[Rfam]
RNA sequence: AGCUUUGCGUAGUGGCAGUGUCAUAGCCAAUGAGGUUUAUCCGAGGCGUGAUUAUUGCUAAUUGAAAACUUUUCCUAAUUUCCACUUAAGACAACAUGCCAAAUAAAAGUGGUGAUUAAAAGAAUAAGUUGAACUUGACAAAUACUAAAAAUUAUCCUUCAA
Numbered sequence: 001a002g003c004u005u006u007g008c009g010u011a012g013u014g015g016c017a018g019u020g021u022c023a024u025a026g027c028c029a030a031u032g033a034g035g036u037u038u039a040u041c042c043g044a045g046g047c048g049u050g051a052u053u054a055u056u057g058c059u060a061a062u063u064g065a066a067a068a069c070u071u072u073u074c075c076u077a078a079u080u081u082c083c084a085c086u087u088a089a090g091a092c093a094a095c096a097u098g099c100c101a102a103a104u105a106a107a108a109g110u111g112g113u114g115a116u117u118a119a120a121a122g123a124a125u126a127a128g129u130u131g132a133a134c135u136u137g138a139c140a141a142a143u144a145c146u147a148a149a150a151a152u153u154a155u156c157c158u159u160c161a162a
Stems, first nucleotide, its partner, number of pairs: 020052005026047003034042002085122003089117002092114002095111003135162004